The record is a 174-nucleotide RNA from Desulfosporosinus acididurans, which matches "Lysine riboswitch aptamer" in Rfam. The match comes from Rfam's covariance-model search (87 bits).
RNA sequence: UGAAAUGAUAGAGGUGCAUUUUACAAUCAGUACCCGAAGUUGUUAAGGUUACGUACGACCGUAGCUUCGGUGAAAGGUGUAGAUGCCGAAGUCGGUUCCAUUACGUGGGGACUGGGCUGGUUGGGCAAAAUAAGAUUUGUUCAACUGUCGCAUUUGCGGAGAGCUAUCUAUAUU
Numbered sequence: 001u002g003a004a005a006u007g008a009u010a011g012a013g014g015u016g017c018a019u020u021u022u023a024c025a026a027u028c029a030g031u032a033c034c035c036g037a038a039g040u041u042g043u044u045a046a047g048g049u050u051a052c053g054u055a056c057g058a059c060c061g062u063a064g065c066u067u068c069g070g071u072g073a074a075a076g077g078u079g080u081a082g083a084u085g086c087c088g089a090a091g092u093c094g095g096u097u098c099c100a101u102u103a104c105g106u107g108g109g110g111a112c113u114g115g116g117c118u119g120g121u122u123g124g125g126c127a128a129a130a131u132a133a134g135a136u137u138u139g140u141u142c143a144a145c146u147g148u149c150g151c152a153u154u155u156g157c158g159g160a161g162a163g164c165u166a167u168c169u170a171u172a173u174u
Base pairs, nucleotide, nucleotide: 007168008167009166010165011164016086017085018084019083020082021081023080024079025078034070035069036068037067038066039065040064041063042062043061090118091117092116093115095113097111098110099109101107119146120145121144122143123142124141125140126139127138128137129136148159149158150157151156
Dot-bracket structure: ......(((((....((((((.(((........((((((((((.................)))))))))).......)))))))))...((((.(.(((.(.....).))).).))))(((((((((((......))))))))))).((((....))))....)))))......